[Rfam]
RNA: Small nucleolar RNA SNORA28
Organism: Chrysochloris asiatica
RNA sequence: AAGCAACAUUCUGUGACAGAUGAUCAAAAUUAUCUGUCACAAGCUAUAGCAAGAAUGUCUAAUUUAUUCUGGUGUUCUUUUGUCAGGAGACAAGUCAUUAUAUAUACUUUAAAAGU
Numbered sequence: 001a002a003g004c005a006a007c008a009u010u011c012u013g014u015g016a017c018a019g020a021u022g023a024u025c026a027a028a029a030u031u032a033u034c035u036g037u038c039a040c041a042a043g044c045u046a047u048a049g050c051a052a053g054a055a056u057g058u059c060u061a062a063u064u065u066a067u068u069c070u071g072g073u074g075u076u077c078u079u080u081u082g083u084c085a086g087g088a089g090a091c092a093a094g095u096c097a098u099u100a101u102a103u104a105u106a107c108u109u110u111a112a113a114a115g116u
Base pairs, nucleotide, nucleotide: 009043012041013040014039015038017036018035019034020033021032022031055109057107058106060104061103065102066101067100070097071096072095073094078090079089080088081087